[Rfam]
RNA sequence: AUGUGGACAAAGUUCUUCAUUUUGUCAAUUCUGUGCAAAGAAGGACAGUGUCCAUAGAG
Numbered sequence: 001a002u003g004u005g006g007a008c009a010a011a012g013u014u015c016u017u018c019a020u021u022u023u024g025u026c027a028a029u030u031c032u033g034u035g036c037a038a039a040g041a042a043g044g045a046c047a048g049u050g051u052c053c054a055u056a057g058a059g
Base pairs, nucleotide, nucleotide: 002056003055004054005053006052007051008050009049012046021039022038023037024036026035